[Rfam]
RNA sequence: AGCACAAAUGAUGAUUCUAAGGGACUUAAUACUGAAGUGUGAUGUCACAUUUAAACAGAAGCUGAUGUGC
Numbered sequence: 001a002g003c004a005c006a007a008a009u010g011a012u013g014a015u016u017c018u019a020a021g022g023g024a025c026u027u028a029a030u031a032c033u034g035a036a037g038u039g040u041g042a043u044g045u046c047a048c049a050u051u052u053a054a055a056c057a058g059a060a061g062c063u064g065a066u067g068u069g070c
Stems, first nucleotide, its partner, number of pairs: 002070005
A member of the RNA family "Small nucleolar RNA SNORD82" from Atlantisia rogersi, 70 nucleotides long. The family's consensus secondary structure was predicted with PFOLD. About the family: snoRNA U82 or Z25 is found in both humans and mice. It is annotated as a C/D-box small nucleolar RNA. It scores 69 bits against the family's covariance model.